[Rfam]
RNA: Lysine riboswitch aptamer
Organism: Virgibacillus salexigens
RNA sequence: AGUGAGGAUAGAGGUGCAAUGUUCAUGAUUACACCGUUUGAGGAUGAUGAGAUCCAGGGAAGAUGGUGGAAAGGGGGCAUUGCCGAAGCCACAGAAAUCUCAUAUUUUCUGUAGCUGGUUCUGCUAUUGAAUAAAUACAGGACUGUCAUAUAGGAAACUAUAUGGAGGGCUAUCUGACGC
Numbered sequence: 001a002g003u004g005a006g007g008a009u010a011g012a013g014g015u016g017c018a019a020u021g022u023u024c025a026u027g028a029u030u031a032c033a034c035c036g037u038u039u040g041a042g043g044a045u046g047a048u049g050a051g052a053u054c055c056a057g058g059g060a061a062g063a064u065g066g067u068g069g070a071a072a073g074g075g076g077g078c079a080u081u082g083c084c085g086a087a088g089c090c091a092c093a094g095a096a097a098u099c100u101c102a103u104a105u106u107u108u109c110u111g112u113a114g115c116u117g118g119u120u121c122u123g124c125u126a127u128u129g130a131a132u133a134a135a136u137a138c139a140g141g142a143c144u145g146u147c148a149u150a151u152a153g154g155a156a157a158c159u160a161u162a163u164g165g166a167g168g169g170c171u172a173u174c175u176g177a178c179g180c
Stems, first nucleotide, its partner, number of pairs: 006175006016083009032068008087116003091112007117144007125137004146165007